Description: A member of the RNA family "Plastid-psbN 5UTR RNA" from Papaver somniferum, 61 nucleotides long. A search with the family's covariance model found it, with a score of 51 bits.
RNA sequence: UGUGACACCCAUCAAAGGGGUAGUUCCACUUCUAAAAUCUACUUUACCAUAUUUCUAAUUC
Numbered sequence: 001u002g003u004g005a006c007a008c009c010c011a012u013c014a015a016a017g018g019g020g021u022a023g024u025u026c027c028a029c030u031u032c033u034a035a036a037a038u039c040u041a042c043u044u045u046a047c048c049a050u051a052u053u054u055c056u057a058a059u060u061c
Stems, first nucleotide, its partner, number of pairs: 017045007025037001
About the family: Plastid psbN is a non-coding RNA (ncRNA) recognised in plastids. It was reported as a conserved 11 stem-loop in the prime untranslated region (5UTR) of psbN genes.
Rfam 15.1 lists 2,345 matches to the family in 397 species.
The base pairs follow the family's consensus structure, which was predicted with LocARNA.
It is annotated as a cis-regulatory element.